RNA sequence: GUGCAAAUGAUGUAAAUUUCGAUACCACUGAGCAGUGUGAUGUUUCCAAAGGAACCACUGAUGCAC
Numbered sequence: 001g002u003g004c005a006a007a008u009g010a011u012g013u014a015a016a017u018u019u020c021g022a023u024a025c026c027a028c029u030g031a032g033c034a035g036u037g038u039g040a041u042g043u044u045u046c047c048a049a050a051g052g053a054a055c056c057a058c059u060g061a062u063g064c065a066c
Stems, first nucleotide, its partner, number of pairs: 001066005

The record is a 66-nucleotide RNA from Chaetorhynchus papuensis, which matches "Small nucleolar RNA SNORD42" in Rfam. The organism belongs to Chaetorhynchus, within Eukaryota. The match comes from Rfam's covariance-model search (57 bits). Rfam links the family to the GO terms RNA processing and nucleolus. Rfam describes the family as follows. snoRNA U42 is found in intron 3 of the ribosomal protein L23a (RPL23a) gene in humans and is also present in mice. It is annotated as a C/D-box small nucleolar RNA. For this family Rfam cites "Purified box C/D snoRNPs are able to reproduce site-specific 2'-O-methylation of target RNA in vitro" (Galardi et al., Mol Cell Biol, 2002).